[Rfam]
RNA sequence: AUGCCAUGGUGUGGACAUUCCCUCUAUAGGUCUUUAUAUCUUUCCCAUGCGUCAUAGAGUGAUUCUCCUUCCUUUUGUCUGAAGGUGUUGAGCUCAAGCCUUAGUUU
Numbered sequence: 001a002u003g004c005c006a007u008g009g010u011g012u013g014g015a016c017a018u019u020c021c022c023u024c025u026a027u028a029g030g031u032c033u034u035u036a037u038a039u040c041u042u043u044c045c046c047a048u049g050c051g052u053c054a055u056a057g058a059g060u061g062a063u064u065c066u067c068c069u070u071c072c073u074u075u076u077g078u079c080u081g082a083a084g085g086u087g088u089u090g091a092g093c094u095c096a097a098g099c100c101u102u103a104g105u106u107u
Base pairs, nucleotide, nucleotide: 001107003105004104006101057074058073

The family of this 107-nucleotide sequence from Hevea brasiliensis is "Plant small nucleolar RNA R71". A search with the family's covariance model found it, with a score of 45 bits. For this family Rfam cites "Plant snoRNAs: functional evolution and new modes of gene expression" (Brown et al., Trends Plant Sci, 2003). The family's consensus secondary structure was predicted with PFOLD. The family's RNA type in Rfam is C/D-box small nucleolar RNA.